[Rfam]
RNA sequence: CUUGACGGAGCCGAGCAGCAGGGGCUGGUCGUCGGGGGUGCGGUCCUGGCCGUAGGUGGCGAGGAGGGCCUGGGCUUC
Numbered sequence: 001c002u003u004g005a006c007g008g009a010g011c012c013g014a015g016c017a018g019c020a021g022g023g024g025c026u027g028g029u030c031g032u033c034g035g036g037g038g039u040g041c042g043g044u045c046c047u048g049g050c051c052g053u054a055g056g057u058g059g060c061g062a063g064g065a066g067g068g069c070c071u072g073g074g075c076u077u078c
Base pairs, nucleotide, nucleotide: 014026015025016024032073033072041068046063047062050059051058052057

Description: The record is a 78-nucleotide sequence from Streptomyces sp. W1SF4, which matches "ASpks TB sRNA" in Rfam. The organism belongs to Streptomyces, within Bacteria. The base pairs follow the family's consensus structure, which is taken from published work.